[Rfam]
RNA sequence: UGCAAAAAUACAAUGGUGAUGUCUUUUCCAAGCACACAUCUGAUUGUUCUCUGUGGAAAAAUGACUGUUGCUGAGUGAUUUUUGAA
Numbered sequence: 001u002g003c004a005a006a007a008a009u010a011c012a013a014u015g016g017u018g019a020u021g022u023c024u025u026u027u028c029c030a031a032g033c034a035c036a037c038a039u040c041u042g043a044u045u046g047u048u049c050u051c052u053g054u055g056g057a058a059a060a061a062u063g064a065c066u067g068u069u070g071c072u073g074a075g076u077g078a079u080u081u082u083u084g085a086a
Stems, first nucleotide, its partner, number of pairs: 001086001003084004008079002010076002
The record is an 86-nucleotide RNA sequence from Campylorhamphus procurvoides, which matches "Small nucleolar RNA SNORD121A" in Rfam. A search with the family's covariance model found it, with a score of 56 bits. The literature on the family includes a 2006 paper in Nucleic Acids Res by Yang et al., "snoSeeker: an advanced computational package for screening of guide and orphan snoRNA genes in the human genome". The family has 26 seed sequences and 881 matches in Rfam 15.1. It is annotated as a C/D-box small nucleolar RNA.